[Rfam]
RNA sequence: AGGUGAUGUCUACUGUACCUUUAUCAUCGUAGGCAGCUCGGCCAUGCUGUGGGUUAUGUGCCUUAGACAUUAUUGUCAAGGGUGUGGCGUGAGGACGGGUUUAAUGCCCG
Numbered sequence: 001a002g003g004u005g006a007u008g009u010c011u012a013c014u015g016u017a018c019c020u021u022u023a024u025c026a027u028c029g030u031a032g033g034c035a036g037c038u039c040g041g042c043c044a045u046g047c048u049g050u051g052g053g054u055u056a057u058g059u060g061c062c063u064u065a066g067a068c069a070u071u072a073u074u075g076u077c078a079a080g081g082g083u084g085u086g087g088c089g090u091g092a093g094g095a096c097g098g099g100u101u102u103a104a105u106g107c108c109c110g
Base pairs, nucleotide, nucleotide: 001020002019003018004017007035008034009033010032011031012030013029037093038092039091040090041088042087043086044085045084046083047082048081051063052062053061054060066077067076068075069074096110097109098108099107100106